[Rfam]
RNA sequence: ACGGUUCUUUCCGCCGCCUUAAGCAAGCGGGCACCGGUUUAAGGAAAGCCUAUCCAACGACCGUAAAAACAGGCACGACCCCGUGCUUGCAUUCGUUGCGAGAUCACCGGUGAUGUCAAAGCGAAGCGGUCUGUGCAGGGACCGCGCAAUGGAACGAUACUUUUGUAUUGUGCUCGUUGUCUCUGGUGCGUUGUUAUCACCCGGGAAUGGGGGAUGGAAUAUCACCAACAACUCGCUCUCAGUGGUAAUCAACGUAGCAAGCAAGUAAGCUCGUCACCGCCCCUUAUGGGGCGGUGAUUCU
Numbered sequence: 001a002c003g004g005u006u007c008u009u010u011c012c013g014c015c016g017c018c019u020u021a022a023g024c025a026a027g028c029g030g031g032c033a034c035c036g037g038u039u040u041a042a043g044g045a046a047a048g049c050c051u052a053u054c055c056a057a058c059g060a061c062c063g064u065a066a067a068a069a070c071a072g073g074c075a076c077g078a079c080c081c082c083g084u085g086c087u088u089g090c091a092u093u094c095g096u097u098g099c100g101a102g103a104u105c106a107c108c109g110g111u112g113a114u115g116u117c118a119a120a121g122c123g124a125a126g127c128g129g130u131c132u133g134u135g136c137a138g139g140g141a142c143c144g145c146g147c148a149a150u151g152g153a154a155c156g157a158u159a160c161u162u163u164u165g166u167a168u169u170g171u172g173c174u175c176g177u178u179g180u181c182u183c184u185g186g187u188g189c190g191u192u193g194u195u196a197u198c199a200c201c202c203g204g205g206a207a208u209g210g211g212g213g214a215u216g217g218a219a220u221a222u223c224a225c226c227a228a229c230a231a232c233u234c235g236c237u238c239u240c241a242g243u244g245g246u247a248a249u250c251a252a253c254g255u256a257g258c259a260a261g262c263a264a265g266u267a268a269g270c271u272c273g274u275c276a277c278c279g280c281c282c283c284u285u286a287u288g289g290g291g292c293g294g295u296g297a298u299u300c301u
Stems, first nucleotide, its partner, number of pairs: 007048006014030004031038002060187003070089007092125006100117001103114004126145007146180007154171007188266002191264005210226002213223004242253002273299001275296009

Rfam assigns this 301-nucleotide RNA from Jejuibacter calystegiae to the family "ryfA RNA". This family consists of a number of bacterial RNA genes of 305 bases in length. The ryfA RNA gene is present in E. coli, Shigella flexneri and Salmonella species where it is found between the ydaN and dbpA genes. A reference for the family is Wassarman et al. (2001), "Identification of novel small RNAs using comparative genomics and microarrays", Genes Dev. It scores 220 bits against the family's covariance model.